[Rfam]
RNA sequence: ACUGGAAGCUGCUGGGACCAUUUGGGGCCAGUCAUGGGCAAAAUUAAUAUUUUUUUGUCCUGUGUUGCAGUCUUCCUAGAGCAAAGUGGAGGUCUCUGUCUGCUUUAGGACAGCCAACUAAACCAGAUCGUUCCCCUCCUUACAUG
Numbered sequence: 001a002c003u004g005g006a007a008g009c010u011g012c013u014g015g016g017a018c019c020a021u022u023u024g025g026g027g028c029c030a031g032u033c034a035u036g037g038g039c040a041a042a043a044u045u046a047a048u049a050u051u052u053u054u055u056u057g058u059c060c061u062g063u064g065u066u067g068c069a070g071u072c073u074u075c076c077u078a079g080a081g082c083a084a085a086g087u088g089g090a091g092g093u094c095u096c097u098g099u100c101u102g103c104u105u106u107a108g109g110a111c112a113g114c115c116a117a118c119u120a121a122a123c124c125a126g127a128u129c130g131u132u133c134c135c136c137u138c139c140u141u142a143c144a145u146g
Base pairs, nucleotide, nucleotide: 004076005075006074008071009070010069011068012067026061030058036054037053038052088139089138090137091136092135096130098128099127100126102124104122105121106120107119108118
RNA: Small Cajal body specific RNA 3